The family of this 134-nucleotide RNA sequence from Colwellia sp. C1TZA3 is "Histidine operon leader". Taxonomically the source falls in Colwellia (Bacteria, Pseudomonadati, Pseudomonadota, Gammaproteobacteria). About the family: At least 6 amino acid operons are known to be regulated by attenuation. In each a leader sequence of 150-200 bp is found upstream of the first gene in the operon. Rfam classes the family as a cis-regulatory leader. The literature on the family includes a 1982 paper in Annu Rev Genet by Kolter and Yanofsky, "Attenuation in amino acid biosynthetic operons".
RNA sequence: UCAUCACCAUCAUCAUACAGAUUAGCUGCUCAGGUUUAUUCGCUGAGGGCUAUGAACCUUUCAGUGGUGUAAGAUAAAUAAAAAUUAAUUUCUAAACCCCCGAAAGAGUUCAUCUCUCUCGGGGGUUUUCGCAU
Dot-bracket structure: ........((.(((.....((........)).)))..))...(((((((........)))))))..........................(..((((((((((.((((.....)))).))))))))))..)...